[Rfam]
RNA sequence: GCAUAGACGAAUUCUGCACUAGCUUUCCUCAGUAGCUGCUGCAGUCAGACACUAUGCCAGAAUAAAUUCCUGUUUCUCACCUGGUUGGCAUGCUUUUUAUGUGAGAAUGGGCAUGCCCUUGGAGGUGGGAUACAU
Numbered sequence: 001g002c003a004u005a006g007a008c009g010a011a012u013u014c015u016g017c018a019c020u021a022g023c024u025u026u027c028c029u030c031a032g033u034a035g036c037u038g039c040u041g042c043a044g045u046c047a048g049a050c051a052c053u054a055u056g057c058c059a060g061a062a063u064a065a066a067u068u069c070c071u072g073u074u075u076c077u078c079a080c081c082u083g084g085u086u087g088g089c090a091u092g093c094u095u096u097u098u099a100u101g102u103g104a105g106a107a108u109g110g111g112c113a114u115g116c117c118c119u120u121g122g123a124g125g126u127g128g129g130a131u132a133c134a135u
Base pairs, nucleotide, nucleotide: 001057002056003055004054005053006052014044015043016042017041018040070128071127072126073125074124075123076122084120087117088116089115090114091113092112093111094110095109